Rfam assigns this 130-nucleotide RNA sequence from Aquarana catesbeiana to the family "Small nucleolar RNA SNORA69". It is annotated as an H/ACA-box small nucleolar RNA.
RNA sequence: AAAGCAGGUUGCAAUUACAGUGCUUUCUCUUAAUGGAAGUGCUGUCAUUAUCCUGCUGAUAGUAAAGAUGUCAGCUUGUCUGUUUUCAGCUUCACAUGUGUGGAAACAUUCAGCACUGACAACUACAGCU
Numbered sequence: 001a002a003a004g005c006a007g008g009u010u011g012c013a014a015u016u017a018c019a020g021u022g023c024u025u026u027c028u029c030u031u032a033a034u035g036g037a038a039g040u041g042c043u044g045u046c047a048u049u050a051u052c053c054u055g056c057u058g059a060u061a062g063u064a065a066a067g068a069u070g071u072c073a074g075c076u077u078g079u080c081u082g083u084u085u086u087c088a089g090c091u092u093c094a095c096a097u098g099u100g101u102g103g104a105a106a107c108a109u110u111c112a113g114c115a116c117u118g119a120c121a122a123c124u125a126c127a128g129c130u
Stems, first nucleotide, its partner, number of pairs: 003057006018044009068124001069121006081108008091098001
Dot-bracket structure: ..((((((.........(((((((((.........))))))))).......))))))..........(((((((......((((((((..(......)..)))))))).......))))))..)......
Taxonomically the source falls in Aquarana (Eukaryota, Metazoa, Chordata, Amphibia).
Rfam's curators write: U69 is a member of the H/ACA class of small nucleolar RNAs (snoRNAs) which act as guides in the the modification of uridines to pseudouridines.
The base pairs follow the family's consensus structure, which was predicted with PFOLD.